[Rfam]
RNA sequence: UUUUCCGUGCUGAACCUUGUUAGAACAAGAAAUUAGCGGAAUGACCAAUUUUGUCUGACCGUUCAUCCACGCAGCAAUGGCGUAAGACGUAUUGAUCUUUCAGACAGUUAGCGGGCUGCGGGUUGCAGUCCUUACCGGUACAGGCUCUAUGGAUUUCACAUCGCAGGAAGGCGUCAACUUCCGGGUUCCCCGGAUGUUCAUCUCAGUCUGAUGAUUAAGGUGAGCAAGUUAAGCCACUUUGCCUGCAACGUGAAAAACAUUGAGUAUAAAUGGAAUCUUCUCUGGUGAUACAUCCCAGGCAGUUCCCCUGAUAAUUGCAUUGUGUUUCCGUUUGAAAUACAGGCAACCGACACUCUGCGCCUCUUAAGCGCGCGACAACCGUGAGGUUGGCGACGUGAAACAGACACGAGGCCAUCGGUUUCUCCCGGUAAGGCGUUACUCUGCCCGCAGCUUAGUCGUCAA
Numbered sequence: 001u002u003u004u005c006c007g008u009g010c011u012g013a014a015c016c017u018u019g020u021u022a023g024a025a026c027a028a029g030a031a032a033u034u035a036g037c038g039g040a041a042u043g044a045c046c047a048a049u050u051u052u053g054u055c056u057g058a059c060c061g062u063u064c065a066u067c068c069a070c071g072c073a074g075c076a077a078u079g080g081c082g083u084a085a086g087a088c089g090u091a092u093u094g095a096u097c098u099u100u101c102a103g104a105c106a107g108u109u110a111g112c113g114g115g116c117u118g119c120g121g122g123u124u125g126c127a128g129u130c131c132u133u134a135c136c137g138g139u140a141c142a143g144g145c146u147c148u149a150u151g152g153a154u155u156u157c158a159c160a161u162c163g164c165a166g167g168a169a170g171g172c173g174u175c176a177a178c179u180u181c182c183g184g185g186u187u188c189c190c191c192g193g194a195u196g197u198u199c200a201u202c203u204c205a206g207u208c209u210g211a212u213g214a215u216u217a218a219g220g221u222g223a224g225c226a227a228g229u230u231a232a233g234c235c236a237c238u239u240u241g242c243c244u245g246c247a248a249c250g251u252g253a254a255a256a257a258c259a260u261u262g263a264g265u266a267u268a269a270a271u272g273g274a275a276u277c278u279u280c281u282c283u284g285g286u287g288a289u290a291c292a293u294c295c296c297a298g299g300c301a302g303u304u305c306c307c308c309u310g311a312u313a314a315u316u317g318c319a320u321u322g323u324g325u326u327u328c329c330g331u332u333u334g335a336a337a338u339a340c341a342g343g344c345a346a347c348c349g350a351c352a353c354u355c356u357g358c359g360c361c362u363c364u365u366a367a368g369c370g371c372g373c374g375a376c377a378a379c380c381g382u383g384a385g386g387u388u389g390g391c392g393a394c395g396u397g398a399a400a401c402a403g404a405c406a407c408g409a410g411g412c413c414a415u416c417g418g419u420u421u422c423u424c425c426c427g428g429u430a431a432g433g434c435g436u437u438a439c440u441c442u443g444c445c446c447g448c449a450g451c452u453u454a455g456u457c458g459u460c461a462a
Stems, first nucleotide, its partner, number of pairs: 003041006016029005051107008063095003069090003074081002113453011132431007143306002316345003320342004325337004346419005359412005373392002376389005
Dot-bracket structure: ..((((((.......(((((....)))))......)))))).........((((((((....(((...(((..((....))......)))..)))....)))))))).....(((((((((((........(((((((....((................................................................................................................................................................)).........(((.((((.((((.....)))).)))))))(((((........(((((.........((.(((((....))))).))...............)))))..))))).....)))))))...........))))))))))).........
Rfam assigns this 462-nucleotide RNA from Klebsiella indica to the family "RNase E 5' UTR element". Rfam classes the family as a cis-regulatory element. This family represents a conserved element found in the 5' UTR of RNase E mRNA. RNase E is a key regulatory enzyme in the pathway of mRNA degradation in E. coli that is able to auto-regulate the degradation of its own mRNA in response to changes in RNase E activity. The match comes from Rfam's covariance-model search (226 bits). The organism belongs to Klebsiella, within Bacteria.